[Rfam]
RNA sequence: AGGUCACUUCAAAGAGAGCUUGCGUGGCUGAAAAACCAGCAGUUCUUAACGCGGUGACCGCAUACUGAAAUCCUCUGCAGGAUGCCGUGGACACUCCAUGUGUGCUAUGGUCUAUUUGUGAGGAGAUAAC
Numbered sequence: 001a002g003g004u005c006a007c008u009u010c011a012a013a014g015a016g017a018g019c020u021u022g023c024g025u026g027g028c029u030g031a032a033a034a035a036c037c038a039g040c041a042g043u044u045c046u047u048a049a050c051g052c053g054g055u056g057a058c059c060g061c062a063u064a065c066u067g068a069a070a071u072c073c074u075c076u077g078c079a080g081g082a083u084g085c086c087g088u089g090g091a092c093a094c095u096c097c098a099u100g101u102g103u104g105c106u107a108u109g110g111u112c113u114a115u116u117u118g119u120g121a122g123g124a125g126a127u128a129a130c
Stems, first nucleotide, its partner, number of pairs: 002059006014047007023039001026037002072123004079116002082113001087108004092104003095100001
The family of this 130-nucleotide RNA from Chaetops frenatus is "Small nucleolar RNA SNORA25". The source organism's lineage runs through Eukaryota, Dinosauria, Neognathae, Picathartidae and Chaetops. Rfam's curators write: ACA25 is a member of the H/ACA class of snoRNA that guide the sites of modification of uridines to pseudouridines. It is annotated as an H/ACA-box small nucleolar RNA. Pairs were carried over by alignment from the consensus structure, which was predicted with RNAfold. It scores 88 bits against the family's covariance model. Gene Ontology terms of the family: nucleolus and RNA processing.